[Rfam]
RNA sequence: CCGUGCUGCGCGUCGAAUCCAUGGGGGCGGGUCACCGCGCCCCGGAACCGGGGAACCACUUCCCGGGGUGAAUCGGGCGACCGACCUCCCGUCGGACGCCCGUAGGAGACCUUCCCGCUCCGAACCCGUCAGCUAACCCGGUAGGCGAAAGAGGGAGAGGAG
Numbered sequence: 001c002c003g004u005g006c007u008g009c010g011c012g013u014c015g016a017a018u019c020c021a022u023g024g025g026g027g028c029g030g031g032u033c034a035c036c037g038c039g040c041c042c043c044g045g046a047a048c049c050g051g052g053g054a055a056c057c058a059c060u061u062c063c064c065g066g067g068g069u070g071a072a073u074c075g076g077g078c079g080a081c082c083g084a085c086c087u088c089c090c091g092u093c094g095g096a097c098g099c100c101c102g103u104a105g106g107a108g109a110c111c112u113u114c115c116c117g118c119u120c121c122g123a124a125c126c127c128g129u130c131a132g133c134u135a136a137c138c139c140g141g142u143a144g145g146c147g148a149a150a151g152a153g154g155g156a157g158a159g160g161a162g
Base pairs, nucleotide, nucleotide: 011147012146013145014144018046019045020044047142048141049140050139051138052137057065066127067126068125074102075101076100077099078098079097105121106120107119108118
A member of the RNA family "c-di-AMP riboswitch aptamer (ydaO/yuaA leader)" from Streptomyces alkaliphilus, 162 nucleotides long. It scores 78 bits against the family's covariance model.